[Rfam]
RNA: Vault RNA
RNA sequence: GCGUCAGCUUUAGCUCACUGGCUACAUCACAGCAUCAACUUCAUUGUAAGUUCAAACCUGUCUCACCAUGAGCGCUGCCUGACGUUUAU
Numbered sequence: 001g002c003g004u005c006a007g008c009u010u011u012a013g014c015u016c017a018c019u020g021g022c023u024a025c026a027u028c029a030c031a032g033c034a035u036c037a038a039c040u041u042c043a044u045u046g047u048a049a050g051u052u053c054a055a056a057c058c059u060g061u062c063u064c065a066c067c068a069u070g071a072g073c074g075c076u077g078c079c080u081g082a083c084g085u086u087u088a089u
Base pairs, nucleotide, nucleotide: 002084003083004082005081006080007079013073014072015071016070019068020067021066027065029063